Small nucleolar RNA SNORD35: an 86-nucleotide RNA sequence from Acipenser ruthenus. The family is grouped with related families in Rfam's "SNORD35 clan". It scores 55 bits against the family's covariance model. By type it is a C/D-box small nucleolar RNA. From the family's description: U35 is a C/D box snoRNA located in intron 6 of ribosomal protein L13A and intron 3 of ribosomal protein S11 in humans and at homologous positions in mouse and chicken ribosomal protein genes. U35 guides the methylation of 2'-O-ribose sites in 28S rRNA.
[Rfam]
RNA sequence: UGCAAGUGAUGUUUUUUCUCACGAUGGUCUUCCAAGCCCUCCAGGCUCUGACGACUCUGCCUCACGGCAACAGCUGAUGCAGCUCG
Numbered sequence: 001u002g003c004a005a006g007u008g009a010u011g012u013u014u015u016u017u018c019u020c021a022c023g024a025u026g027g028u029c030u031u032c033c034a035a036g037c038c039c040u041c042c043a044g045g046c047u048c049u050g051a052c053g054a055c056u057c058u059g060c061c062u063c064a065c066g067g068c069a070a071c072a073g074c075u076g077a078u079g080c081a082g083c084u085c086g
Stems, first nucleotide, its partner, number of pairs: 001081004